permuted transfer-messenger RNA: a 187-nucleotide sequence from Candidatus Pelagibacter communis. The match comes from Rfam's covariance-model search (124 bits). The family's consensus secondary structure is taken from published work.
RNA sequence: GACGAUAAACGAAUUUCGUAAUAACCAUUACGGACGUGGGGGCAGUACCCACCACCUCCACCAUUUACAACUUACGGGGGUGAAAUAGGAUCGACGGGUGACUAAAGGCUAUUCUUUCGUUCGGGAUUGUUCCACCGUAACGGGCUAAACUUUAAAUGCUGACGAAAGUUACGCACUUGCUGCAUAA
Number, nucleotide and partner (000 for none) at each position: 001g121002a120003c119004g118005a117006u000007a000008a000009a000010c000011g000012a000013a000014u111015u000016u000017c108018g000019u000020a000021a000022u000023a000024a000025c000026c100027a099028u098029u000030a000031c096032g095033g000034a000035c000036g052037u051038g050039g049040g048041g000042g000043c000044a000045g000046u000047a000048c040049c039050c038051a037052c036053c082054a081055c080056c079057u078058c077059c076060a000061c000062c000063a000064u000065u000066u000067a000068c000069a000070a000071c000072u000073u000074a000075c000076g059077g058078g057079g056080g055081u054082g053083a000084a000085a000086u000087a000088g000089g000090a000091u000092c000093g000094a000095c032096g031097g000098g028099u027100g026101a000102c000103u000104a000105a000106a000107g000108g017109c000110u000111a014112u000113u000114c000115u000116u000117u005118c004119g003120u002121u001122c137123g136124g135125g000126a000127u000128u000129g000130u000131u000132c000133c000134a000135c124136c123137g122138u000139a000140a000141c000142g000143g000144g000145c000146u000147a000148a000149a000150c000151u000152u000153u000154a000155a000156a000157u000158g000159c000160u000161g000162a000163c000164g000165a000166a000167a000168g000169u000170u000171a000172c000173g000174c000175a000176c000177u000178u000179g000180c000181u000182g000183c000184a000185u000186a000187a000